[Rfam]
RNA sequence: GCCUUAAGAGCAUUCGGUGGAUGCCUUGGCGCUGAGAGGCGAUGAAGGACGUGAUACGCUGCGAUAAGCCGUGGGGAGCUGCGAAUGAGCUUUGAUCCGCGGAUUUCCGAAUGGGGAAACCCACCUUCGACAAUUCGUAUUGUGACCUCUGCCUGCAAGGGUAGAUGUUGCACUACGAAUUGUCAGAUGAAGGUAUUGAGCCCUGAAUACAUAGGGGUUCAAAGCUAACCCAGGGAACUGAAACAUCUAAGUACCUGGAGGAAAGGACAUCAACGAGACUCCGUUAGUAGUGGCGAGCGAACGCGGACCAGGCCAGUGCCUGACUGUAAGUUACCGGAAGUGGUUGGGAAACCACGCAAUAAUGGGUGAUAGCCCCGUACGGAUCUGCGAACAGUUGGGACAUGAGUAAGGCGGGACACGUGAAAUCCUGUCUGAACGUGGGGGGACCACCCUCCAAGCCUAAGUACUCCUCAGCGACCGAUAGUGAACAAGUACCGUGAGGGAAAGGUGAAAAGCACCCCGACGAGGGGAGUGAAAUAGCACCUGAAACCGAAUGCUUACAAA
Numbered sequence: 001g002c003c004u005u006a007a008g009a010g011c012a013u014u015c016g017g018u019g020g021a022u023g024c025c026u027u028g029g030c031g032c033u034g035a036g037a038g039g040c041g042a043u044g045a046a047g048g049a050c051g052u053g054a055u056a057c058g059c060u061g062c063g064a065u066a067a068g069c070c071g072u073g074g075g076g077a078g079c080u081g082c083g084a085a086u087g088a089g090c091u092u093u094g095a096u097c098c099g100c101g102g103a104u105u106u107c108c109g110a111a112u113g114g115g116g117a118a119a120c121c122c123a124c125c126u127u128c129g130a131c132a133a134u135u136c137g138u139a140u141u142g143u144g145a146c147c148u149c150u151g152c153c154u155g156c157a158a159g160g161g162u163a164g165a166u167g168u169u170g171c172a173c174u175a176c177g178a179a180u181u182g183u184c185a186g187a188u189g190a191a192g193g194u195a196u197u198g199a200g201c202c203c204u205g206a207a208u209a210c211a212u213a214g215g216g217g218u219u220c221a222a223a224g225c226u227a228a229c230c231c232a233g234g235g236a237a238c239u240g241a242a243a244c245a246u247c248u249a250a251g252u253a254c255c256u257g258g259a260g261g262a263a264a265g266g267a268c269a270u271c272a273a274c275g276a277g278a279c280u281c282c283g284u285u286a287g288u289a290g291u292g293g294c295g296a297g298c299g300a301a302c303g304c305g306g307a308c309c310a311g312g313c314c315a316g317u318g319c320c321u322g323a324c325u326g327u328a329a330g331u332u333a334c335c336g337g338a339a340g341u342g343g344u345u346g347g348g349a350a351a352c353c354a355c356g357c358a359a360u361a362a363u364g365g366g367u368g369a370u371a372g373c374c375c376c377g378u379a380c381g382g383a384u385c386u387g388c389g390a391a392c393a394g395u396u397g398g399g400a401c402a403u404g405a406g407u408a409a410g411g412c413g414g415g416a417c418a419c420g421u422g423a424a425a426u427c428c429u430g431u432c433u434g435a436a437c438g439u440g441g442g443g444g445g446a447c448c449a450c451c452c453u454c455c456a457a458g459c460c461u462a463a464g465u466a467c468u469c470c471u472c473a474g475c476g477a478c479c480g481a482u483a484g485u486g487a488a489c490a491a492g493u494a495c496c497g498u499g500a501g502g503g504a505a506a507g508g509u510g511a512a513a514a515g516c517a518c519c520c521c522g523a524c525g526a527g528g529g530g531a532g533u534g535a536a537a538u539a540g541c542a543c544c545u546g547a548a549a550c551c552g553a554a555u556g557c558u559u560a561c562a563a564a
Stems, first nucleotide, its partner, number of pairs: 008559010023544001024508002028479002030476007037468002039225002047108003050063003069102007078090003113122003123194007196222009229260001230258005240247002270276002279464001280307005290298002310461004318401001320398008330388002334382003340355005364376003409433008440455005495502002518530004